Shown here is a 410-nucleotide sequence from Nakamurella antarctica, a member of the family "Bacterial RNase P class A". The family's RNA type in Rfam is ribozyme. The organism belongs to Nakamurella, within Bacteria. A search with the family's covariance model found it, with a score of 291 bits.
[Rfam]
RNA sequence: CGAGUUGGCUGGGCAGCCGCGUCACUGGUCGAGGGAUCGGUGUCGAGGAAAGUCCGGGCUCCACAGGGCAGGGUGGUUGUUAACGGCAACCCGGGGCGACCCGCGGGACAGUGCCACAGAAAAUAGACCGCCAGCGAGGGCUUUCGAGCCCACGCCGGUAAGGGUGAAACGGUGGUGUAAGAGACCACCAGCGUGCCGGGCGACCGGUGCGGCUAGGUAAACCCCACCCGGAGCAAGGUCAGGAUCCGCGGCUUAGGCUGCGGUGCGCAAGUGUUUGAGGGCGGCUCGCCCGAGCUUGCGGGUAGACCGCUAGAGCGUGCUGGCAACGGCAUGCCGAGAUGGAUGGUUGCCGAACGGGAUUGCCGCGAGGCACCCGGGAACAGGACCCGGCUUAUAGGCCAACUCGUCCC
Numbered sequence: 001c002g003a004g005u006u007g008g009c010u011g012g013g014c015a016g017c018c019g020c021g022u023c024a025c026u027g028g029u030c031g032a033g034g035g036a037u038c039g040g041u042g043u044c045g046a047g048g049a050a051a052g053u054c055c056g057g058g059c060u061c062c063a064c065a066g067g068g069c070a071g072g073g074u075g076g077u078u079g080u081u082a083a084c085g086g087c088a089a090c091c092c093g094g095g096g097c098g099a100c101c102c103g104c105g106g107g108a109c110a111g112u113g114c115c116a117c118a119g120a121a122a123a124u125a126g127a128c129c130g131c132c133a134g135c136g137a138g139g140g141c142u143u144u145c146g147a148g149c150c151c152a153c154g155c156c157g158g159u160a161a162g163g164g165u166g167a168a169a170c171g172g173u174g175g176u177g178u179a180a181g182a183g184a185c186c187a188c189c190a191g192c193g194u195g196c197c198g199g200g201c202g203a204c205c206g207g208u209g210c211g212g213c214u215a216g217g218u219a220a221a222c223c224c225c226a227c228c229c230g231g232a233g234c235a236a237g238g239u240c241a242g243g244a245u246c247c248g249c250g251g252c253u254u255a256g257g258c259u260g261c262g263g264u265g266c267g268c269a270a271g272u273g274u275u276u277g278a279g280g281g282c283g284g285c286u287c288g289c290c291c292g293a294g295c296u297u298g299c300g301g302g303u304a305g306a307c308c309g310c311u312a313g314a315g316c317g318u319g320c321u322g323g324c325a326a327c328g329g330c331a332u333g334c335c336g337a338g339a340u341g342g343a344u345g346g347u348u349g350c351c352g353a354a355c356g357g358g359a360u361u362g363c364c365g366c367g368a369g370g371c372a373c374c375c376g377g378g379a380a381c382a383g384g385a386c387c388c389g390g391c392u393u394a395u396a397g398g399c400c401a402a403c404u405c406g407u408c409c410c
Base pairs, nucleotide, nucleotide: 001406002405003404004403005402006401007400008399009398010397011395012351013350014349015348016347017346018345020045021044023042024041025040026039027038028037050393051392052391054390055389056388057387058386059233060232061231062230066287067286068285069284071229072228073227074226075225076090077089078088079087080086091105092103093102094101095100106224107223111222112221113218114217115216128163129162130159131158132157134155135154136153138151139150140149141148142147171189172188173187174186175185176184191213192211193210194209195208196207197206198205199204237308238307239306240305267299268298269297270296271295272294279291280290281289282288315334316333317332318331319330320329321328322327